RNA sequence: UGAGUCGGUCGGGCGGCCGCGUUGCACCUCCGGGUGCACCGAGGAACGUCCGGGCUCCGUAGAGCAAGGUGGUGGGUAACGCCCACCCGGGGUGACCCGCGGGAAAGUGCCACAGAGAGCAGACCGCCCGUCCUCGGACGGGUAAGGGUGAAACGGUGGUGUAAGAGACCACCAGCGCGGCGGGCGACCGUCGCGGCUAGGUAAACCCCACCUGGAGCAAGACCAGACAGGGUGCGUUCGAGGGCUGCUCGCCCGAGCACCCGGGUAGGUCGCUGGAGGCGUGCGGCAACGUACGUCGUAGAUGGAUGGCCGCCCAUCGGAGCGAGGCAACUCGCCCGUGGACAGAACCCGGCGUACAGACCGACUCAUCCG
Number, nucleotide and partner (000 for none) at each position: 001u368002g367003a366004g365005u364006c363007g362008g361009u360010c359011g357012g314013g313014c312015g311016g310017c309018c308019g000020c041021g040022u000023u038024g037025c036026a035027c034028c033029u000030c000031c000032g000033g028034g027035u026036g025037c024038a023039c000040c021041g020042a000043g000044g000045a000046a355047c354048g353049u000050c352051c351052g350053g349054g348055c217056u216057c215058c214059g000060u000061a000062g250063a249064g248065c247066a000067a213068g212069g211070u210071g209072g086073u085074g084075g083076g082077u000078a000079a000080c000081g000082c076083c075084c074085a073086c072087c101088c099089g098090g097091g096092g000093u000094g000095a000096c091097c090098c089099g088100c000101g087102g208103g207104a000105a000106a000107g206108u205109g202110c201111c200112a000113c000114a000115g000116a000117g000118a000119g000120c000121a000122g000123a000124c147125c146126g143127c142128c141129c140130g139131u138132c137133c000134u000135c000136g000137g132138a131139c130140g129141g128142g127143u126144a000145a000146g125147g124148g000149u000150g000151a000152a000153a000154c000155g173156g172157u171158g170159g169160u168161g000162u000163a000164a000165g000166a000167g000168a160169c159170c158171a157172c156173c155174a000175g197176c195177g194178c193179g192180g191181c190182g189183g188184g000185c000186g000187a000188c183189c182190g181191u180192c179193g178194c177195g176196g000197c175198u000199a000200g111201g110202u109203a000204a000205a108206c107207c103208c102209c071210a070211c069212c068213u067214g058215g057216a056217g055218c000219a000220a000221g271222a270223c269224c268225a000226g000227a000228c000229a000230g262231g261232g260233u259234g258235c257236g000237u000238u000239c000240g000241a000242g254243g253244g252245c251246u000247g065248c064249u063250c062251g245252c244253c243254c242255g000256a000257g235258c234259a233260c232261c231262c230263g000264g000265g000266u000267a000268g224269g223270u222271c221272g000273c000274u000275g000276g000277a000278g297279g296280c295281g294282u293283g292284c291285g290286g000287c000288a000289a000290c285291g284292u283293a282294c281295g280296u279297c278298g000299u000300a000301g000302a000303u000304g000305g000306a000307u000308g018309g017310c016311c015312g014313c013314c012315c000316a000317u000318c000319g000320g000321a000322g000323c000324g000325a000326g000327g000328c000329a000330a000331c000332u000333c000334g000335c000336c000337c000338g000339u000340g000341g000342a000343c000344a000345g000346a000347a000348c054349c053350c052351g051352g050353c048354g047355u046356a000357c011358a000359g010360a009361c008362c007363g006364a005365c004366u003367c002368a001369u000370c000371c000372g000